[Rfam]
RNA sequence: GCGCUGGUGUAGCUCAGUGGUUACUUCUACUCACAAAAAGAAACUCAUGGUCGACGGUUCACCGAUGGCCGGAGAUCUAACCACGGGCUCUGUCCAGCGUUUUG
Numbered sequence: 001g002c003g004c005u006g007g008u009g010u011a012g013c014u015c016a017g018u019g020g021u022u023a024c025u026u027c028u029a030c031u032c033a034c035a036a037a038a039a040g041a042a043a044c045u046c047a048u049g050g051u052c053g054a055c056g057g058u059u060c061a062c063c064g065a066u067g068g069c070c071g072g073a074g075a076u077c078u079a080a081c082c083a084c085g086g087g088c089u090c091u092g093u094c095c096a097g098c099g100u101u102u103u104g
Base pairs, nucleotide, nucleotide: 002099003098004097005096006095007094012088013087014086015085017084018083019082020081025074026073027072028071
Dot-bracket structure: .((((((....((((.((((....((((..........................................))))......)))))))).....)))))).....
Shown here is a 104-nucleotide sequence from Sinocyclocheilus anshuiensis, a member of the family "Vault RNA".
About the family: This family of RNAs are found as part of the enigmatic vault ribonucleoprotein complex.
For this family Rfam cites "Evolution of Vault RNAs" (Stadler et al., Mol Biol Evol, 2009).
By type it is a non-coding RNA gene.
The base pairs follow the family's consensus structure, which is taken from published work.
The source organism's lineage runs through Eukaryota, Eumetazoa, Otophysi, Cypriniphysae and Sinocyclocheilus.